Shown here is an 83-nucleotide RNA sequence from Cuscuta europaea, a member of the family "Small nucleolar RNA R16". A reference for the family is Galardi et al. (2002), "Purified box C/D snoRNPs are able to reproduce site-specific 2'-O-methylation of target RNA in vitro", Mol Cell Biol. A search with the family's covariance model found it, with a score of 60 bits. Taxonomically the source falls in Cuscuta subgen. Cuscuta (Eukaryota, Tracheophyta, Mesangiospermae, lamiids). Rfam classes the family as a C/D-box small nucleolar RNA.

RNA sequence: CAGGGCAAUGACGACUACUGAGAUAUGCAAAACACUGAAUAUAUGGUGUUGAUUAUAUACUCCGCUUAUUAUCUGAUGCCUUU
Numbered sequence: 001c002a003g004g005g006c007a008a009u010g011a012c013g014a015c016u017a018c019u020g021a022g023a024u025a026u027g028c029a030a031a032a033c034a035c036u037g038a039a040u041a042u043a044u045g046g047u048g049u050u051g052a053u054u055a056u057a058u059a060c061u062c063c064g065c066u067u068a069u070u071a072u073c074u075g076a077u078g079c080c081u082u083u
Stems, first nucleotide, its partner, number of pairs: 003081005